[Rfam]
RNA sequence: UCCAUUUGUACACCUAACCUCUCAUAGGCUAUGUCUGAUUGAAUUGAAAAAGUGCACAGACAAAGCCUAGUAGAGGCUAGAUUUAUAAGGAAUU
Numbered sequence: 001u002c003c004a005u006u007u008g009u010a011c012a013c014c015u016a017a018c019c020u021c022u023c024a025u026a027g028g029c030u031a032u033g034u035c036u037g038a039u040u041g042a043a044u045u046g047a048a049a050a051a052g053u054g055c056a057c058a059g060a061c062a063a064a065g066c067c068u069a070g071u072a073g074a075g076g077c078u079a080g081a082u083u084u085a086u087a088a089g090g091a092a093u094u
Stems, first nucleotide, its partner, number of pairs: 012082001014080003018076003027067004032062005